[Rfam]
This 78-nucleotide RNA from Thamnophis sirtalis belongs to the Rfam family "mir-190 microRNA precursor family". Rfam 15.1 lists 1,667 matches to the family in 854 species. The family is grouped with related families in Rfam's "mir-50 clan". On this family, see Kloosterman et al., Nucleic Acids Res 2006: "Cloning and expression of new microRNAs from zebrafish". It scores 76 bits against the family's covariance model. Rfam links the family to the GO terms miRNA-mediated post-transcriptional gene silencing and RISC complex.
RNA sequence: UCCUCUGCCUGAUAUGUUUGAUAUUAGGUUGUUCUACUGCAAAACUCAACUAAAUAUCAAACAUAUUCUGACAGCGGC
Numbered sequence: 001u002c003c004u005c006u007g008c009c010u011g012a013u014a015u016g017u018u019u020g021a022u023a024u025u026a027g028g029u030u031g032u033u034c035u036a037c038u039g040c041a042a043a044a045c046u047c048a049a050c051u052a053a054a055u056a057u058c059a060a061a062c063a064u065a066u067u068c069u070g071a072c073a074g075c076g077g078c
Base pairs, nucleotide, nucleotide: 005074006073007072009070011067012066013065014064015063016062017061018060019059020058021057022056023055024054025053027051028050029049030048031047